Bacterial small signal recognition particle RNA: a 95-nucleotide RNA from Dermacoccus nishinomiyaensis. The family is grouped with related families in Rfam's "SRP clan". The organism belongs to Dermacoccus, within Bacteria. Rfam classes the family as a non-coding RNA gene.
RNA sequence: CAAGCCCCCCGCGUGGUGGUACCUCUCCGAACUCCCCCAGGGCAGGAAUGCAGCAAGGGUAGGAGAGCUCUUCCAGGUACGCGGGGGGCGCUCAC
Numbered sequence: 001c002a003a004g005c006c007c008c009c010c011g012c013g014u015g016g017u018g019g020u021a022c023c024u025c026u027c028c029g030a031a032c033u034c035c036c037c038c039a040g041g042g043c044a045g046g047a048a049u050g051c052a053g054c055a056a057g058g059g060u061a062g063g064a065g066a067g068c069u070c071u072u073c074c075a076g077g078u079a080c081g082c083g084g085g086g087g088g089c090g091c092u093c094a095c
Stems, first nucleotide, its partner, number of pairs: 003092003007088001008085006014077001017075003021071001023067006034059003042051003